Source information:
mir-998 microRNA precursor family: an 83-nucleotide sequence from Heliconius melpomene. The base pairs follow the family's consensus structure, which was predicted with RNAalifold. Its family is annotated with RISC complex and miRNA-mediated post-transcriptional gene silencing in the Gene Ontology. Rfam 15.1 lists 83 matches to the family in 63 species.
[Rfam]
RNA sequence: CACGGGGCGUCCCCGAGCUACAUCCCGUGGGGCUCCAGUCUGUGCGUGUAGCACCAUGGGAUUCAGCUCAGGGCGGCCGCGAC
Numbered sequence: 001c002a003c004g005g006g007g008c009g010u011c012c013c014c015g016a017g018c019u020a021c022a023u024c025c026c027g028u029g030g031g032g033c034u035c036c037a038g039u040c041u042g043u044g045c046g047u048g049u050a051g052c053a054c055c056a057u058g059g060g061a062u063u064c065a066g067c068u069c070a071g072g073g074c075g076g077c078c079g080c081g082a083c
Stems, first nucleotide, its partner, number of pairs: 003081002006078002012073003015069002018066002023061008033051002036048002
Lineage of the source: Eukaryota > Eumetazoa > Hexapoda > Aparaglossata > Heliconius.